Rfam assigns this 143-nucleotide RNA from Clostridium sp. SY8519 to the family "Ribosomal protein L10 leader". On this family, see Zengel and Lindahl, Prog Nucleic Acid Res Mol Biol 1994: "Diverse mechanisms for regulating ribosomal protein synthesis in Escherichia coli". A search with the family's covariance model found it, with a score of 78 bits. Rfam's curators write: This family is a putative r-protein leader autoregulatory structure found in B. subtilis and other low-GC Gram-positive bacteria.

[Rfam]
RNA sequence: AUCAUGCGAUAGCAAUCGCCGAAGACAGCAGGCGCCGUAAGGCAUAAUCAUCGCAGCCUGCCGAGGGAACAGCGAAUCUGCUGGAUUCGUUCGAAAGAAAUUUUCCUCUCUGUCUCAGGGCAGAGAGGUUUUUUUAUUCCCCU
Numbered sequence: 001a002u003c004a005u006g007c008g009a010u011a012g013c014a015a016u017c018g019c020c021g022a023a024g025a026c027a028g029c030a031g032g033c034g035c036c037g038u039a040a041g042g043c044a045u046a047a048u049c050a051u052c053g054c055a056g057c058c059u060g061c062c063g064a065g066g067g068a069a070c071a072g073c074g075a076a077u078c079u080g081c082u083g084g085a086u087u088c089g090u091u092c093g094a095a096a097g098a099a100a101u102u103u104u105c106c107u108c109u110c111u112g113u114c115u116c117a118g119g120g121c122a123g124a125g126a127g128g129u130u131u132u133u134u135u136a137u138u139c140c141c142c143u
Stems, first nucleotide, its partner, number of pairs: 028061006034043003105128010